RNA sequence: CUUCGCUGGCCACCUCGGCGAAGAAAGAGCUUGGGAAUCAACGACUUACUGCCCUAGUAAACGUCUCGUCUCCCGCUCCAAA
Numbered sequence: 001c002u003u004c005g006c007u008g009g010c011c012a013c014c015u016c017g018g019c020g021a022a023g024a025a026a027g028a029g030c031u032u033g034g035g036a037a038u039c040a041a042c043g044a045c046u047u048a049c050u051g052c053c054c055u056a057g058u059a060a061a062c063g064u065c066u067c068g069u070c071u072c073c074c075g076c077u078c079c080a081a082a
Stems, first nucleotide, its partner, number of pairs: 001023009029078001032075005039068001043065003050059003

Shown here is an 82-nucleotide RNA sequence from Paraburkholderia xenovorans, a member of the family "Proteobacterial sRNA sX8".
Pairs were carried over by alignment from the consensus structure, which was predicted with CMfinder.